This 128-nucleotide RNA from Helicobacter muridarum belongs to the Rfam family "Bacterial antisense RNA HPnc0260". It scores 67 bits against the family's covariance model. A reference for the family is Sharma et al. (2010), "The primary transcriptome of the major human pathogen Helicobacter pylori", Nature.
RNA sequence: UACUUAAAAUUAAGGAAAAACAAUAAAUUAAAAAUAGCUUGAAUAUUAAAUUUAAUACAAAAUUUGAGAUUGUUAUAAUUAAGUGUUGAUGGUGGUUGCGACUGGACUCGAACCAGCGACCCCUACCA
Numbered sequence: 001u002a003c004u005u006a007a008a009a010u011u012a013a014g015g016a017a018a019a020a021c022a023a024u025a026a027a028u029u030a031a032a033a034a035u036a037g038c039u040u041g042a043a044u045a046u047u048a049a050a051u052u053u054a055a056u057a058c059a060a061a062a063u064u065u066g067a068g069a070u071u072g073u074u075a076u077a078a079u080u081a082a083g084u085g086u087u088g089a090u091g092g093u094g095g096u097u098g099c100g101a102c103u104g105g106a107c108u109c110g111a112a113c114c115a116g117c118g119a120c121c122c123c124u125a126c127c128a
Stems, first nucleotide, its partner, number of pairs: 001020001005016001040054003090125003094121002099118002102116004
Dot-bracket structure: (...(..........)...)...................(((.........)))...................................(((.((...((.((((.......)))))).)).)))...